The record is a 195-nucleotide sequence from Morganella morganii, which matches "Yersinia sRNA 276" in Rfam. Lineage of the source: Bacteria > Pseudomonadati > Gammaproteobacteria > Morganellaceae > Morganella morganii subsp. morganii. A search with the family's covariance model found it, with a score of 148 bits. A reference for the family is Nuss et al. (2015), "Transcriptomic profiling of Yersinia pseudotuberculosis reveals reprogramming of the Crp regulon by temperature and uncovers Crp as a master regulator of small RNAs", PLoS Genet.
RNA sequence: CACCGACAUCAGGGAUUCAUUACGUGAUCCCUGGCCGACGGCCAGAUACGCCAGCAUGCCCAGCUCUUUCAUCUGCUCUUCGCCGAUGACACGGGUACUGAGCACCGGAGAGUUGCUGUCUGCCAGCUGACGCGCCUGAGAUGCCAGAUAAGCGGCAUUACAGAUAUUCGGCGGCAUAUUGGCCAGAUCUUUCGC
Numbered sequence: 001c002a003c004c005g006a007c008a009u010c011a012g013g014g015a016u017u018c019a020u021u022a023c024g025u026g027a028u029c030c031c032u033g034g035c036c037g038a039c040g041g042c043c044a045g046a047u048a049c050g051c052c053a054g055c056a057u058g059c060c061c062a063g064c065u066c067u068u069u070c071a072u073c074u075g076c077u078c079u080u081c082g083c084c085g086a087u088g089a090c091a092c093g094g095g096u097a098c099u100g101a102g103c104a105c106c107g108g109a110g111a112g113u114u115g116c117u118g119u120c121u122g123c124c125a126g127c128u129g130a131c132g133c134g135c136c137u138g139a140g141a142u143g144c145c146a147g148a149u150a151a152g153c154g155g156c157a158u159u160a161c162a163g164a165u166a167u168u169c170g171g172c173g174g175c176a177u178a179u180u181g182g183c184c185a186g187a188u189c190u191u192u193c194g195c
Stems, first nucleotide, its partner, number of pairs: 005189002012032003017027004033043003050059002062077003079134001081132002084129002087126001092122006099112001136163003140159006167186002170183001172181001